RNA sequence: AAAAAGGGCUUCUGCCAUGUUUGGCACAUGAGUGGUGGGGUUGUCCAUCGCUCUUGCGGAAUCGCUAUCAAGAGAUUUCGGAAGCACAAUUUUUACAACCGGGGAUGCUAGUGAUCGCCUGUCCUGGCGCCCCA
Numbered sequence: 001a002a003a004a005a006g007g008g009c010u011u012c013u014g015c016c017a018u019g020u021u022u023g024g025c026a027c028a029u030g031a032g033u034g035g036u037g038g039g040g041u042u043g044u045c046c047a048u049c050g051c052u053c054u055u056g057c058g059g060a061a062u063c064g065c066u067a068u069c070a071a072g073a074g075a076u077u078u079c080g081g082a083a084g085c086a087c088a089a090u091u092u093u094u095a096c097a098a099c100c101g102g103g104g105a106u107g108c109u110a111g112u113g114a115u116c117g118c119c120u121g122u123c124c125u126g127g128c129g130c131c132c133c134a
Stems, first nucleotide, its partner, number of pairs: 008085005013026005027056002030053009057080007102132003107128005113123003
Dot-bracket structure: .......((((((((((....)))))((.(((((((((......))))))))).))(((((((..........))))))))))))................(((..(((((.(((.....)))))))).)))..
The record is a 134-nucleotide sequence from Salarias fasciatus, which matches "U11 spliceosomal RNA" in Rfam. The source organism's lineage runs through Eukaryota, Craniata, Euteleosteomorpha, Blenniiformes and Salarias. By type it is a spliceosomal small nuclear RNA. Gene Ontology terms of the family: mRNA 5'-splice site recognition, U11 snRNP and pre-mRNA 5'-splice site binding. A search with the family's covariance model found it, with a score of 112 bits. The literature on the family includes a 1988 paper in Proc Natl Acad Sci U S A by Montzka and Steitz, "Additional low-abundance human small nuclear ribonucleoproteins: U11, U12, etc". The family's consensus secondary structure is taken from published work.